The family of this 138-nucleotide sequence from Actinomadura logoneensis is "c-di-AMP riboswitch aptamer (ydaO/yuaA leader)". The pairing is the family consensus, mapped onto this sequence. Its family is annotated with regulation of gene expression and cyclic-di-AMP binding in the Gene Ontology. NCBI's taxonomy places the organism under Bacteria, Actinomycetota, Actinomycetes, Thermomonosporaceae, Actinomadura. It scores 72 bits against the family's covariance model.
RNA sequence: CCGCUCCCGACGCCGACGCGCGUCCAGUGGAGCCGGGGACCCACCUACACCGGGGUGAAUCGGCCUCCCAGAGGCCGUAGGGCAGCUUCCACGCCCGAACCCGACAGCUAACCCGGUAGGCGGCAUGGAAGCCGAGGA
Numbered sequence: 001c002c003g004c005u006c007c008c009g010a011c012g013c014c015g016a017c018g019c020g021c022g023u024c025c026a027g028u029g030g031a032g033c034c035g036g037g038g039a040c041c042c043a044c045c046u047a048c049a050c051c052g053g054g055g056u057g058a059a060u061c062g063g064c065c066u067c068c069c070a071g072a073g074g075c076c077g078u079a080g081g082g083c084a085g086c087u088u089c090c091a092c093g094c095c096c097g098a099a100c101c102c103g104a105c106a107g108c109u110a111a112c113c114c115g116g117u118a119g120g121c122g123g124c125a126u127g128g129a130a131g132c133c134g135a136g137g138a
Stems, first nucleotide, its partner, number of pairs: 011122004019030001032117006042052001053102003061077004080096004